The family of this 333-nucleotide RNA sequence from Colletotrichum gloeosporioides is "Group I catalytic intron". Group I catalytic introns are large self-splicing ribozymes. They catalyse their own excision from mRNA, tRNA and rRNA precursors in a wide range of organisms. Rfam links the family to the GO term Group I intron splicing.
[Rfam]
RNA sequence: GUUCCUCUAUUAAGAGGGUUAUUAGAAUAAGAGUGAAAAGCUACCUAUUAGUAAGGCGUCCCUUAGGGCGCCUUAUAACACUAUUAAAUUAGUAGGAAGUCUCUAAGGCUUAAUAACACUACAGCCUAAUAAAAGAAGGGUGUGUACUAAGGAUAGCACCUCUAGGGAUAGUAAUAGUUAUUAAGAUAUAUAGGUAACCUAUAGCUAAGCCUUAAGUCUCCCUUUUAGGGGGGAUAUAAGUGCAGUUUAACGACUAAACAGCAGUAAGCUUAUUAGAGGGAAACCUCCCUAGUAAGUCUAAGAUAUAGUCUAUAGCAUACCUAAAAUAGUAUU
Numbered sequence: 001g002u003u004c005c006u007c008u009a010u011u012a013a014g015a016g017g018g019u020u021a022u023u024a025g026a027a028u029a030a031g032a033g034u035g036a037a038a039a040g041c042u043a044c045c046u047a048u049u050a051g052u053a054a055g056g057c058g059u060c061c062c063u064u065a066g067g068g069c070g071c072c073u074u075a076u077a078a079c080a081c082u083a084u085u086a087a088a089u090u091a092g093u094a095g096g097a098a099g100u101c102u103c104u105a106a107g108g109c110u111u112a113a114u115a116a117c118a119c120u121a122c123a124g125c126c127u128a129a130u131a132a133a134a135g136a137a138g139g140g141u142g143u144g145u146a147c148u149a150a151g152g153a154u155a156g157c158a159c160c161u162c163u164a165g166g167g168a169u170a171g172u173a174a175u176a177g178u179u180a181u182u183a184a185g186a187u188a189u190a191u192a193g194g195u196a197a198c199c200u201a202u203a204g205c206u207a208a209g210c211c212u213u214a215a216g217u218c219u220c221c222c223u224u225u226u227a228g229g230g231g232g233g234a235u236a237u238a239a240g241u242g243c244a245g246u247u248u249a250a251c252g253a254c255u256a257a258a259c260a261g262c263a264g265u266a267a268g269c270u271u272a273u274u275a276g277a278g279g280g281a282a283a284c285c286u287c288c289c290u291a292g293u294a295a296g297u298c299u300a301a302g303a304u305a306u307a308g309u310c311u312a313u314a315g316c317a318u319a320c321c322u323a324a325a326a327u328a329g330u331a332u333u
Base pairs, nucleotide, nucleotide: 003018004017005016006015007014008013080265081264082263085260090203091202093201094200095199096198100194101193102192104190204246205245209241210240212238217234218233219232220231221230250311252310253309254308255307256306268297269296270295271294272293273292274291275290276289318331319330320329